[Rfam]
Rfam assigns this 74-nucleotide sequence from Rhodobacteraceae bacterium EhC02 to the family "tRNA".
Pairs were carried over by alignment from the consensus structure, which is taken from published work.
It scores 66 bits against the family's covariance model.
Lineage of the source: Bacteria > Pseudomonadati > Pseudomonadota > Rhodobacterales > Paracoccaceae.
Its Rfam clan is "tRNA clan".

RNA sequence: GGACUGGUAGCUCAGUUGGAUAGAGUACUUGACUACGAAUCAAGGGGUCGGGGGUUCGAAUCCUCCCCAGUCCG
Numbered sequence: 001g002g003a004c005u006g007g008u009a010g011c012u013c014a015g016u017u018g019g020a021u022a023g024a025g026u027a028c029u030u031g032a033c034u035a036c037g038a039a040u041c042a043a044g045g046g047g048u049c050g051g052g053g054g055u056u057c058g059a060a061u062c063c064u065c066c067c068c069a070g071u072c073c074g
Base pairs, nucleotide, nucleotide: 001073002072003071004070005069006068007067010026011025012024013023028044029043030042031041032040050066051065052064053063054062